[Rfam]
RNA sequence: CCCACGAAACGGCAAACCACUGGAAACGGUGGGACGCAAAGUUUCCGGCCUAAAACGGGCGUUCUCCGGCAACGGGUGGCGGCGUGAUGGUAGCGGGACUGCCGAA
Numbered sequence: 001c002c003c004a005c006g007a008a009a010c011g012g013c014a015a016a017c018c019a020c021u022g023g024a025a026a027c028g029g030u031g032g033g034a035c036g037c038a039a040a041g042u043u044u045c046c047g048g049c050c051u052a053a054a055a056c057g058g059g060c061g062u063u064c065u066c067c068g069g070c071a072a073c074g075g076g077u078g079g080c081g082g083c084g085u086g087a088u089g090g091u092a093g094c095g096g097g098a099c100u101g102c103c104g105a106a
Stems, first nucleotide, its partner, number of pairs: 012037002017032006040100004045096003048091003055085003